[Rfam]
RNA sequence: GAGCGAUGAGGAUUUCAGCGCAGCUGUGAUGCAGGGCGCAUCGCAACCGUUUGAUCAUCGGAUGACAUCAGCGCUUCUGAGCUC
Dot-bracket structure: ((((............................................................................))))
Numbered sequence: 001g002a003g004c005g006a007u008g009a010g011g012a013u014u015u016c017a018g019c020g021c022a023g024c025u026g027u028g029a030u031g032c033a034g035g036g037c038g039c040a041u042c043g044c045a046a047c048c049g050u051u052u053g054a055u056c057a058u059c060g061g062a063u064g065a066c067a068u069c070a071g072c073g074c075u076u077c078u079g080a081g082c083u084c
Stems, first nucleotide, its partner, number of pairs: 001084004
This 84-nucleotide sequence from Cocos nucifera belongs to the Rfam family "small nucleolar RNA snoR114".
Its family is annotated with RNA processing and nucleolus in the Gene Ontology.
It scores 60 bits against the family's covariance model.
Lineage of the source: Eukaryota > Viridiplantae > Streptophytina > Arecoideae > Cocos.